[Rfam]
RNA sequence: CAUACCGUUGCGGGAGAGCCCUUCCGAUCGUUGGUUGGCGCCGUAGGAGCAAACCCUCUCCGGGAAUCUCUCAGGCACCAGUACCGCAGUGGCUAG
Numbered sequence: 001c002a003u004a005c006c007g008u009u010g011c012g013g014g015a016g017a018g019c020c021c022u023u024c025c026g027a028u029c030g031u032u033g034g035u036u037g038g039c040g041c042c043g044u045a046g047g048a049g050c051a052a053a054c055c056c057u058c059u060c061c062g063g064g065a066a067u068c069u070c071u072c073a074g075g076c077a078c079c080a081g082u083a084c085c086g087c088a089g090u091g092g093c094u095a096g
Base pairs, nucleotide, nucleotide: 006091007090008089009088010087011086012085013084020038021037040076041075042074043072047070048069049068054062
Glycine riboswitch aptamer: a 96-nucleotide RNA sequence from marine actinobacterium PHSC20C1.
Its family is annotated with glycine biosynthetic process in the Gene Ontology.
It scores 57 bits against the family's covariance model.
Taxonomically the source falls in Actinomycetes (Bacteria, Bacillati, Actinomycetota).